[Rfam]
RNA sequence: UCUUCCGUCCUGGGGGAGUAGCCGGCGCGGCUUGAUGGCCGCGGGUGCGCGUCAACACACUUGGUCUGCGACCAUGGCGCGCAACAGUCCCGAACGGACUGCGGCAAGACCCAUGAUGCACGCCGGCUCUCAUCGAGGCUCGGCCGCGUGCGUCAUGGUGUCCGUCACGAGCCUCGGGAU
Numbered sequence: 001u002c003u004u005c006c007g008u009c010c011u012g013g014g015g016g017a018g019u020a021g022c023c024g025g026c027g028c029g030g031c032u033u034g035a036u037g038g039c040c041g042c043g044g045g046u047g048c049g050c051g052u053c054a055a056c057a058c059a060c061u062u063g064g065u066c067u068g069c070g071a072c073c074a075u076g077g078c079g080c081g082c083a084a085c086a087g088u089c090c091c092g093a094a095c096g097g098a099c100u101g102c103g104g105c106a107a108g109a110c111c112c113a114u115g116a117u118g119c120a121c122g123c124c125g126g127c128u129c130u131c132a133u134c135g136a137g138g139c140u141c142g143g144c145c146g147c148g149u150g151c152g153u154c155a156u157g158g159u160g161u162c163c164g165u166c167a168c169g170a171g172c173c174u175c176g177g178g179a180u
Stems, first nucleotide, its partner, number of pairs: 026043003045085001046083009062074005087180006
Shown here is a 180-nucleotide sequence from Laribacter hongkongensis, a member of the family "Manganese Mn2+ riboswitch aptamer (yybP-ykoY)". The pairing is the family consensus, mapped onto this sequence. The literature on the family includes a 2001 paper in Curr Biol by Argaman et al., "Novel small RNA-encoding genes in the intergenic regions of Escherichia coli".